[Rfam]
RNA sequence: GGGCUAUGGUGACCGAAAACAUUUCUCGAUUCUGAUAAGGACCAAAGCAAGUCGUUAGCUAUGCGAUGAUAGUGUUUGUGCGUGUCUGAGCCUA
Numbered sequence: 001g002g003g004c005u006a007u008g009g010u011g012a013c014c015g016a017a018a019a020c021a022u023u024u025c026u027c028g029a030u031u032c033u034g035a036u037a038a039g040g041a042c043c044a045a046a047g048c049a050a051g052u053c054g055u056u057a058g059c060u061a062u063g064c065g066a067u068g069a070u071a072g073u074g075u076u077u078g079u080g081c082g083u084g085u086c087u088g089a090g091c092c093u094a
Stems, first nucleotide, its partner, number of pairs: 001093004
This 94-nucleotide RNA from Glycine max belongs to the Rfam family "small nucleolar RNA snoR126". The source organism's lineage runs through Eukaryota, Euphyllophyta, Spermatophyta, fabids and Glycine subgen. Soja. Rfam classes the family as a C/D-box small nucleolar RNA. The base pairs follow the family's consensus structure, which was predicted with RNAalifold.